[Rfam]
RNA sequence: GGCAGAGUAGGUGUCCCGCGUAAAGUGACGGAGGAUGGGACGUUGCUUCCGUACGAAAAGUCUAGUGUAAAACCUAGGCUUGCGGUGGGCCACCGCGUCCGCUGUC
Numbered sequence: 001g002g003c004a005g006a007g008u009a010g011g012u013g014u015c016c017c018g019c020g021u022a023a024a025g026u027g028a029c030g031g032a033g034g035a036u037g038g039g040a041c042g043u044u045g046c047u048u049c050c051g052u053a054c055g056a057a058a059a060g061u062c063u064a065g066u067g068u069a070a071a072a073c074c075u076a077g078g079c080u081u082g083c084g085g086u087g088g089g090c091c092a093c094c095g096c097g098u099c100c101g102c103u104g105u106c
Base pairs, nucleotide, nucleotide: 001106002105003104004103005102010094011093012092013091015089016088017087018086019084020083021082025054026053028052029051030050031049032048033047034046038100039099040098041097042096058081059080060079061078062077063076064075065074
RNA: THF (Tetrahydrofolate) riboswitch aptamer